[Rfam]
Shown here is a 67-nucleotide RNA from Rubrobacter taiwanensis, a member of the family "Fluoride riboswitch aptamer (crcB RNA motif)". The literature on the family includes a 2012 paper in Nature by Ren et al., "Fluoride ion encapsulation by Mg2+ ions and phosphates in a fluoride riboswitch".

RNA sequence: AGCGCCGAGGGUGAUGAGGCUCACCCAUAACCGCAUCUCACGGGAUGCUGAUGGCUUCUACUUGCGG
Numbered sequence: 001a002g003c004g005c006c007g008a009g010g011g012u013g014a015u016g017a018g019g020c021u022c023a024c025c026c027a028u029a030a031c032c033g034c035a036u037c038u039c040a041c042g043g044g045a046u047g048c049u050g051a052u053g054g055c056u057u058c059u060a061c062u063u064g065c066g067g
Stems, first nucleotide, its partner, number of pairs: 010025004016058006033048006